[Rfam]
RNA sequence: UCCUAGUAUCUCCCUCUGAUUCAUUCAUGUAUUAGCGGGUCGUAAAGGUUGCUAAAUAAAUAUGAAUUCUUUUUUUAUUUAAUUAUCAAACAAUAAAUUUGUUUAAUAAUUACUUAAGAAUGCUACAAUU
Numbered sequence: 001u002c003c004u005a006g007u008a009u010c011u012c013c014c015u016c017u018g019a020u021u022c023a024u025u026c027a028u029g030u031a032u033u034a035g036c037g038g039g040u041c042g043u044a045a046a047g048g049u050u051g052c053u054a055a056a057u058a059a060a061u062a063u064g065a066a067u068u069c070u071u072u073u074u075u076u077a078u079u080u081a082a083u084u085a086u087c088a089a090a091c092a093a094u095a096a097a098u099u100u101g102u103u104u105a106a107u108a109a110u111u112a113c114u115u116a117a118g119a120a121u122g123c124u125a126c127a128a129u130u
Stems, first nucleotide, its partner, number of pairs: 002048003007044003012039003016035005022029002072120005080112007088104006
The family of this 130-nucleotide sequence from Tetrahymena thermophila is "Tetrahymena snoRNA TtnuHACA18". NCBI's taxonomy places the organism under Eukaryota, Sar, Intramacronucleata, Tetrahymenina, Tetrahymena. A reference for the family is Andersen and Nielsen (2012), "Experimental identification and analysis of macronuclear non-coding RNAs from the ciliate Tetrahymena thermophila", Nucleic Acids Res. It is annotated as an H/ACA-box small nucleolar RNA. Rfam's curators put it in the seed alignment.